[Rfam]
Shown here is a 105-nucleotide RNA sequence from Ilyonectria sp. MPI-CAGE-AT-0026, a member of the family "Small nucleolar RNA SNORD14". About the family: U14 small nucleolar RNA (U14 snoRNA) is required for early cleavages of eukaryotic precursor rRNAs. The literature on the family includes a 1996 paper in Nucleic Acids Res by Samarsky et al., "An essential domain in Saccharomyces cerevisiae U14 snoRNA is absent in vertebrates, but conserved in other yeasts". Taxonomically the source falls in Ilyonectria (Eukaryota, Opisthokonta, Pezizomycotina, sordariomyceta). A search with the family's covariance model found it, with a score of 66 bits. The family's consensus secondary structure was predicted with PFOLD. Its family is annotated with RNA processing and nucleolus in the Gene Ontology.

RNA sequence: GUGAAAUGAUGAAAUUUUCCACCACAUUCGCAGUUUCCACUUGAGUUCCAUUGAGCCUUUUUUGGGACAGAUGAGGGUUAUGCACUUCCUUGGAUGUCUUAUCAC
Numbered sequence: 001g002u003g004a005a006a007u008g009a010u011g012a013a014a015u016u017u018u019c020c021a022c023c024a025c026a027u028u029c030g031c032a033g034u035u036u037c038c039a040c041u042u043g044a045g046u047u048c049c050a051u052u053g054a055g056c057c058u059u060u061u062u063u064g065g066g067a068c069a070g071a072u073g074a075g076g077g078u079u080a081u082g083c084a085c086u087u088c089c090u091u092g093g094a095u096g097u098c099u100u101a102u103c104a105c
Stems, first nucleotide, its partner, number of pairs: 001105004045068006
Dot-bracket structure: ((((........................................((((((............)))))).................................))))